Rfam assigns this 111-nucleotide RNA sequence from Inhella inkyongensis to the family "ZMP/ZTP riboswitch aptamer (pfl RNA motif)". The base pairs follow the family's consensus structure, which is taken from published work. The organism belongs to Inhella, within Bacteria. Gene Ontology terms of the family: regulation of purine nucleotide biosynthetic process and one-carbon metabolic process.
RNA sequence: GCCGCGCCGCGUCACUGGCGAUCAGGGGCCAAGCCCUGAGGUGGAGACCCACCGGGAAGCGCGGCCGAGUGCCCCUGCAUUCGUACCGAGCCGUUCGCCUGGGCCACCCGC
Numbered sequence: 001g002c003c004g005c006g007c008c009g010c011g012u013c014a015c016u017g018g019c020g021a022u023c024a025g026g027g028g029c030c031a032a033g034c035c036c037u038g039a040g041g042u043g044g045a046g047a048c049c050c051a052c053c054g055g056g057a058a059g060c061g062c063g064g065c066c067g068a069g070u071g072c073c074c075c076u077g078c079a080u081u082c083g084u085a086c087c088g089a090g091c092c093g094u095u096c097g098c099c100u101g102g103g104c105c106a107c108c109c110g111c
Base pairs, nucleotide, nucleotide: 006065007064008063009062010061011060012059015056016055017099018098019097020096021095041052042051043050044049090104091103092102